Rfam assigns this 90-nucleotide RNA from Medicago truncatula to the family "MIR319 microRNA precursor family". Its family is annotated with miRNA-mediated post-transcriptional gene silencing and RISC complex in the Gene Ontology. The organism belongs to Medicago, within Eukaryota. Pairs were carried over by alignment from the consensus structure, which was predicted with RNAalifold. The match comes from Rfam's covariance-model search (73 bits).
[Rfam]
RNA sequence: CAAAAAUAGGAGUUCCUUGCAGCCCAAAGCACCAAAGCGAGAGAACUACUGUCAAGUUCUGUUUUGGACUGAAUGGAGCUCCCAGUUCUU
Numbered sequence: 001c002a003a004a005a006a007u008a009g010g011a012g013u014u015c016c017u018u019g020c021a022g023c024c025c026a027a028a029g030c031a032c033c034a035a036a037g038c039g040a041g042a043g044a045a046c047u048a049c050u051g052u053c054a055a056g057u058u059c060u061g062u063u064u065u066g067g068a069c070u071g072a073a074u075g076g077a078g079c080u081c082c083c084a085g086u087u088c089u090u
Stems, first nucleotide, its partner, number of pairs: 007084001009082008018073001021070002024067005